[Rfam]
The record is a 133-nucleotide sequence from Merluccius polli, which matches "Small nucleolar RNA ACA64" in Rfam. The family's consensus secondary structure was predicted with WAR. Rfam links the family to the GO terms RNA processing and nucleolus.
RNA sequence: CCAGACUGAAAAUGACUUCAGGUGUACCAAUGGCCUGUCGUCAGAUAACUGGUGCCUACAUUACUGUGGCGUGUGAAUGCUUAUCACCUGCUCCGUUCUGUGGCAGCAAGAUAAAACCCAUAUGCCAACAAAC
Numbered sequence: 001c002c003a004g005a006c007u008g009a010a011a012a013u014g015a016c017u018u019c020a021g022g023u024g025u026a027c028c029a030a031u032g033g034c035c036u037g038u039c040g041u042c043a044g045a046u047a048a049c050u051g052g053u054g055c056c057u058a059c060a061u062u063a064c065u066g067u068g069g070c071g072u073g074u075g076a077a078u079g080c081u082u083a084u085c086a087c088c089u090g091c092u093c094c095g096u097u098c099u100g101u102g103g104c105a106g107c108a109a110g111a112u113a114a115a116a117c118c119c120a121u122a123u124g125c126c127a128a129c130a131a132a133c
Stems, first nucleotide, its partner, number of pairs: 005053004010046001013043004021035003068126001070124005081114005089105003